[Rfam]
Rfam assigns this 186-nucleotide RNA from Bacillus cereus to the family "Group II catalytic intron D1-D4-5". Group II introns are found in rRNA, tRNA and mRNA of organelles in fungi, plants and protists, and also in mRNA in bacteria. Lineage of the source: Bacteria > Caryophanales > Bacillaceae > Bacillus > Bacillus cereus.
RNA sequence: CACAACUAAUUAUUCGAAAAGUGGAAUGAAAGCCGUCAUGUUGAGCUGAAACACUUUCCCUAAUACUCCUACGUGCGUCAAACUGUGAUAGCGGUGAGAGGUACGAAGCUAGGUGAAGUCGCCUGAAUUUAAUCUGGAGCCACUUAAUGAGAAGGUAUGAUUAAAGAUAUGGCGGGGGGCUAUAAG
Numbered sequence: 001c002a003c004a005a006c007u008a009a010u011u012a013u014u015c016g017a018a019a020a021g022u023g024g025a026a027u028g029a030a031a032g033c034c035g036u037c038a039u040g041u042u043g044a045g046c047u048g049a050a051a052c053a054c055u056u057u058c059c060c061u062a063a064u065a066c067u068c069c070u071a072c073g074u075g076c077g078u079c080a081a082a083c084u085g086u087g088a089u090a091g092c093g094g095u096g097a098g099a100g101g102u103a104c105g106a107a108g109c110u111a112g113g114u115g116a117a118g119u120c121g122c123c124u125g126a127a128u129u130u131a132a133u134c135u136g137g138a139g140c141c142a143c144u145u146a147a148u149g150a151g152a153a154g155g156u157a158u159g160a161u162u163a164a165a166g167a168u169a170u171g172g173c174g175g176g177g178g179g180c181u182a183u184a185a186g
Base pairs, nucleotide, nucleotide: 018057019056020055021054022053023052031047032046033045058178059177060176061175068113069112070111071110072105073104074103075102076101078099079098082095083094084093085092120174121173122172123171128165129164130163131162132161133160136141143159145157146156

Rfam's curators put it in the seed alignment. Rfam 15.1 lists 720 matches to the family in 418 species. Its family is annotated with Group II intron splicing in the Gene Ontology.